The family of this 156-nucleotide sequence from Georgenia yuyongxinii is "c-di-AMP riboswitch aptamer (ydaO/yuaA leader)". On this family, see Barrick et al., Proc Natl Acad Sci U S A 2004: "New RNA motifs suggest an expanded scope for riboswitches in bacterial genetic control". NCBI's taxonomy places the organism under Bacteria, Bacillati, Actinomycetota, Allobogoriellales, Georgenia. Pairs were carried over by alignment from the consensus structure.

Nucleotides: 156
Base pairs, nucleotide, nucleotide: 001029002028003027030136031135032134033133034132035131040070041069071121072120073119080096082094100115101114102113103112
Number, partner (000 for none) and nucleotide at each position: 001029c002028c003027c004000g005000g006000g007000g008000u009000u010000g011000a012000c013000c014000c015000g016000a017000c018000a019000c020000c021000g022000c023000g024000g025000c026000a027003g028002g029001g030136g031135c032134g033133g034132g035131g036000g037000a038000c039000c040070c041069a042000c043000a044000u045000c046000u047000c048000g049000g050000a051000c052000c053000u054000g055000g056000g057000c058000a059000u060000c061000c062000a063000g064000g065000c066000c067000c068000u069041u070040g071121g072120g073119g074000u075000a076000a077000a078000g079000c080096g081000c082094g083000g084000c085000c086000g087000g088000a089000g090000a091000c092000g093000g094082c095000c096080c097000a098000c099000c100115g101114g102113g103112u104000g105000a106000c107000c108000u109000c110000u111000c112103a113102c114101c115100c116000g117000a118000a119073c120072c121071c122000g123000a124000c125000a126000g127000c128000u129000c130000a131035c132034c133033c134032c135031g136030c137000a138000g139000g140000c141000a142000g143000c144000c145000a146000g147000g148000a149000g150000a151000g152000g153000c154000a155000g156000u